[Rfam]
Nucleotides: 049
Base pairs, nucleotide, nucleotide: 001020003018004017005016
Number, partner (000 for none) and nucleotide at each position: 001020c002000c003018c004017u005016u006000a007000u008000u009000u010000a011000c012000u013000g014000c015000u016005a017004a018003g019000u020001g021000a022000u023000g024000g025000c026000u027000a028000a029000a030000u031000g032000u033000u034000g035000c036000c037000u038000g039000a040000a041000g042000a043000a044000g045000g046000g047000u048000a049000a